[Rfam]
RNA sequence: GGCGUUUUACGCGGCGGCGGAGCUCGACCGCCAUACCCGUUGAUCGUCGCCUACAUCGACGCUCACAAAGUCCGGUUCGGGGUCGAGCCGAUCUGCGCCGUCCUGCGAGCCGAGGGCAUCGCGGUCGCCCCG
Numbered sequence: 001g002g003c004g005u006u007u008u009a010c011g012c013g014g015c016g017g018c019g020g021a022g023c024u025c026g027a028c029c030g031c032c033a034u035a036c037c038c039g040u041u042g043a044u045c046g047u048c049g050c051c052u053a054c055a056u057c058g059a060c061g062c063u064c065a066c067a068a069a070g071u072c073c074g075g076u077u078c079g080g081g082g083u084c085g086a087g088c089c090g091a092u093c094u095g096c097g098c099c100g101u102c103c104u105g106c107g108a109g110c111c112g113a114g115g116g117c118a119u120c121g122c123g124g125u126c127g128c129c130c131c132g
Stems, first nucleotide, its partner, number of pairs: 016032005078132005089127002092124002095122003
This 132-nucleotide RNA sequence from Pseudonocardia oroxyli belongs to the Rfam family "ALIL pseudoknot". The family has 26 seed sequences and 2,146 matches in Rfam 15.1. Lineage of the source: Bacteria > Actinomycetota > Actinomycetes > Pseudonocardiaceae > Pseudonocardia.